RNA sequence: AUACUUACCUGGGCGGGGUCAAUCGGUGAUCAAGAAGGCCGAUGGCCUAGGGGCGGGCCCGCCAUUGCACUUCGGCCGGCCCUGUCCCUAGCACGCCGGAACUCCCGGUGAUGCACGUCAUAAUUUGUGGCAGAGGGGGCUCGCGUUCGCGCGGCCCCUAC
Numbered sequence: 001a002u003a004c005u006u007a008c009c010u011g012g013g014c015g016g017g018g019u020c021a022a023u024c025g026g027u028g029a030u031c032a033a034g035a036a037g038g039c040c041g042a043u044g045g046c047c048u049a050g051g052g053g054c055g056g057g058c059c060c061g062c063c064a065u066u067g068c069a070c071u072u073c074g075g076c077c078g079g080c081c082c083u084g085u086c087c088c089u090a091g092c093a094c095g096c097c098g099g100a101a102c103u104c105c106c107g108g109u110g111a112u113g114c115a116c117g118u119c120a121u122a123a124u125u126u127g128u129g130g131c132a133g134a135g136g137g138g139g140c141u142c143g144c145g146u147u148c149g150c151g152c153g154g155c156c157c158c159u160a161c
Stems, first nucleotide, its partner, number of pairs: 012119004016048006023042005049089003053086001055083003059079003062075002091114003094110001096107001098106002135159004142153004

A member of the RNA family "U1 spliceosomal RNA" from Closterium sp. NIES-68, 161 nucleotides long. The base pairs follow the family's consensus structure, which is taken from published work. It scores 136 bits against the family's covariance model. U1 is a small nuclear RNA (snRNA) component of the spliceosome (involved in pre-mRNA splicing). Its 5' end forms complementary base pairs with the 5' splice junction, thus defining the 5' donor site of an intron. There are significant differences in sequence and secondary structure between metazoan and yeast U1 snRNAs, the latter being much longer (568 nucleotides as compared to 164 nucleotides in human).